[Rfam]
RNA sequence: CUUUGUUACGCAUAUUUAAUCACCUAAGUAUAUUCUAGGUUCCUAAUAAUUGUGUAACAGGUAUAGAAAAACGUAUUGUUAGGUUUUAUAAUUCUUAUUAUCUAUUGUCUAUAAAAAAUAUACUGCUGUGCGGUAAAUAAAAAAAACCGCUAUUGCAGCAGUAUUCUUUUCUUGCUCUCAUUUAAAUAUAGCUAUACGGCGGUUUUGAAUAAUCAAAGCUGUCGUAUUUUUUCAAAUUCAGAAA
Numbered sequence: 001c002u003u004u005g006u007u008a009c010g011c012a013u014a015u016u017u018a019a020u021c022a023c024c025u026a027a028g029u030a031u032a033u034u035c036u037a038g039g040u041u042c043c044u045a046a047u048a049a050u051u052g053u054g055u056a057a058c059a060g061g062u063a064u065a066g067a068a069a070a071a072c073g074u075a076u077u078g079u080u081a082g083g084u085u086u087u088a089u090a091a092u093u094c095u096u097a098u099u100a101u102c103u104a105u106u107g108u109c110u111a112u113a114a115a116a117a118a119u120a121u122a123c124u125g126c127u128g129u130g131c132g133g134u135a136a137a138u139a140a141a142a143a144a145a146a147c148c149g150c151u152a153u154u155g156c157a158g159c160a161g162u163a164u165u166c167u168u169u170u171c172u173u174g175c176u177c178u179c180a181u182u183u184a185a186a187u188a189u190a191g192c193u194a195u196a197c198g199g200c201g202g203u204u205u206u207g208a209a210u211a212a213u214c215a216a217a218g219c220u221g222u223c224g225u226a227u228u229u230u231u232u233c234a235a236a237u238u239c240a241g242a243a244a
Stems, first nucleotide, its partner, number of pairs: 002115003007104002013100002016097001028076004033071002036068001039064002042061003047056002077090003081086001121163009130150004194227005200221009

Rfam assigns this 244-nucleotide RNA from Clostridium sp. DL-VIII to the family "Cis-regulator of HTH transcription factor". Rfam's curators write: This element was identified by RNA deep sequencing of Clostridioides difficile 630 where it is located immediately upstream of an uncharacterized HTH-type Transcriptional regulator.